[Rfam]
RNA sequence: GGACAAUGACGAAUGAAAUAUUAAGGUCUCGUUCGUCGUAAGAGCGAUAAUUUCGCCUUGCCGAUAAUUUUAACCAUUUCCGAGUCC
Numbered sequence: 001g002g003a004c005a006a007u008g009a010c011g012a013a014u015g016a017a018a019u020a021u022u023a024a025g026g027u028c029u030c031g032u033u034c035g036u037c038g039u040a041a042g043a044g045c046g047a048u049a050a051u052u053u054c055g056c057c058u059u060g061c062c063g064a065u066a067a068u069u070u071u072a073a074c075c076a077u078u079u080c081c082g083a084g085u086c087c
Stems, first nucleotide, its partner, number of pairs: 001087004046059002
RNA: Small nucleolar RNA Z43
Organism: Spinacia oleracea